[Rfam]
RNA sequence: AAAUGGGCGAUGAAGGGAAGAAGUAGUGUUUAUCUCCCUGCUUUCAGAGAGCUGAUGGUUGGUGCGAAUCAGCGCAAAGAUAAACAUGAAUUACGUCCUGGAGCAUCUUUUGUGAACGGCUUGGCCAAGUAGCAAAAGACGGUGAAAACCGUUAUCUCAAUGAGUGAGAGAACGUCUUGUUCUCUAAGUAGGGUGGUACCGCGAUUACAACUCGUCCCUUCG
Numbered sequence: 001a002a003a004u005g006g007g008c009g010a011u012g013a014a015g016g017g018a019a020g021a022a023g024u025a026g027u028g029u030u031u032a033u034c035u036c037c038c039u040g041c042u043u044u045c046a047g048a049g050a051g052c053u054g055a056u057g058g059u060u061g062g063u064g065c066g067a068a069u070c071a072g073c074g075c076a077a078a079g080a081u082a083a084a085c086a087u088g089a090a091u092u093a094c095g096u097c098c099u100g101g102a103g104c105a106u107c108u109u110u111u112g113u114g115a116a117c118g119g120c121u122u123g124g125c126c127a128a129g130u131a132g133c134a135a136a137a138g139a140c141g142g143u144g145a146a147a148a149c150c151g152u153u154a155u156c157u158c159a160a161u162g163a164g165u166g167a168g169a170g171a172a173c174g175u176c177u178u179g180u181u182c183u184c185u186a187a188g189u190a191g192g193g194u195g196g197u198a199c200c201g202c203g204a205u206u207a208c209a210a211c212u213c214g215u216c217c218c219u220u221c222g
Stems, first nucleotide, its partner, number of pairs: 007104002015099004026087006039076003051073006107138007140151003167185007190219004201215004
The record is a 222-nucleotide RNA from Thermolongibacillus altinsuensis, which matches "T-box leader" in Rfam. It is annotated as a cis-regulatory leader. Taxonomically the source falls in Thermolongibacillus (Bacteria, Bacilli, Caryophanales, Anoxybacillaceae).